[Rfam]
RNA sequence: GGGGGCCGUUACACUGUAAGAGAUGUAGUCUGAGGUCUCACAGUGAACCGGUCUCUUU
Numbered sequence: 001g002g003g004g005g006c007c008g009u010u011a012c013a014c015u016g017u018a019a020g021a022g023a024u025g026u027a028g029u030c031u032g033a034g035g036u037c038u039c040a041c042a043g044u045g046a047a048c049c050g051g052u053c054u055c056u057u058u
Stems, first nucleotide, its partner, number of pairs: 002055007012045006020039003
RNA: mir-128 microRNA precursor family
Organism: Salmo salar